[Rfam]
mir-263 microRNA precursor family: an 82-nucleotide sequence from Aphis craccivora. The organism belongs to Aphis, within Eukaryota. The base pairs follow the family's consensus structure, which was predicted with RNAalifold. Rfam links the family to the GO terms RISC complex and miRNA-mediated post-transcriptional gene silencing.
RNA sequence: GAUCUGCAAACCUUGGCACUGGAAGAAUUCACAGACUAAUUAUUGAAGAUCGUGAGUCUCCUGGUGUCAACUAUUGCGGAUC
Numbered sequence: 001g002a003u004c005u006g007c008a009a010a011c012c013u014u015g016g017c018a019c020u021g022g023a024a025g026a027a028u029u030c031a032c033a034g035a036c037u038a039a040u041u042a043u044u045g046a047a048g049a050u051c052g053u054g055a056g057u058c059u060c061c062u063g064g065u066g067u068c069a070a071c072u073a074u075u076g077c078g079g080a081u082c
Stems, first nucleotide, its partner, number of pairs: 003080007013070006020063003023059001025058002029055004034050001